[Rfam]
RNA sequence: GGCCAGUGAUGUAAUAAAAAUAUUUGCUACUCUUGAUGAAGAACUUUGUUCUUUCAGUUGAUGAUUGGUUUACCACCAAGAUCUCUGAGGCC
Numbered sequence: 001g002g003c004c005a006g007u008g009a010u011g012u013a014a015u016a017a018a019a020a021u022a023u024u025u026g027c028u029a030c031u032c033u034u035g036a037u038g039a040a041g042a043a044c045u046u047u048g049u050u051c052u053u054u055c056a057g058u059u060g061a062u063g064a065u066u067g068g069u070u071u072a073c074c075a076c077c078a079a080g081a082u083c084u085c086u087g088a089g090g091c092c
Stems, first nucleotide, its partner, number of pairs: 001092004
Annotation: The family of this 92-nucleotide sequence is "Small nucleolar RNA SNORD24". Gene Ontology terms of the family: nucleolus and RNA processing. The sequence is in the family's curated seed alignment. The family's consensus secondary structure was predicted with PFOLD. It is annotated as a C/D-box small nucleolar RNA. A reference for the family is Qu et al. (1995), "U24, a novel intron-encoded small nucleolar RNA with two 12 nt long, phylogenetically conserved complementarities to 28S rRNA", Nucleic Acids Res.